Background: Rfam assigns this 170-nucleotide RNA sequence from Medicago truncatula to the family "MIR2619 microRNA precursor family".
[Rfam]
RNA sequence: AAACAACCCCCUAUGUUUUGAUUCUUUAGCAGUUUUGGACCCCCAAUCCAUUGUUGACUCGGUCAACGCUAACGUGGCACCCUAAGUGAGGUGCCACAUGUCAAUAUUUUAUUUUAUUUUUGCUUUGGGGGUCCAAAACUGCCAAAGAAUCAAAACAUAGGGGGCUGUUU
Numbered sequence: 001a002a003a004c005a006a007c008c009c010c011c012u013a014u015g016u017u018u019u020g021a022u023u024c025u026u027u028a029g030c031a032g033u034u035u036u037g038g039a040c041c042c043c044c045a046a047u048c049c050a051u052u053g054u055u056g057a058c059u060c061g062g063u064c065a066a067c068g069c070u071a072a073c074g075u076g077g078c079a080c081c082c083u084a085a086g087u088g089a090g091g092u093g094c095c096a097c098a099u100g101u102c103a104a105u106a107u108u109u110u111a112u113u114u115u116a117u118u119u120u121u122g123c124u125u126u127g128g129g130g131g132u133c134c135a136a137a138a139c140u141g142c143c144a145a146a147g148a149a150u151c152a153a154a155a156c157a158u159a160g161g162g163g164g165c166u167g168u169u170u
Stems, first nucleotide, its partner, number of pairs: 001170002004167002007164002012159016029142017072101002075096007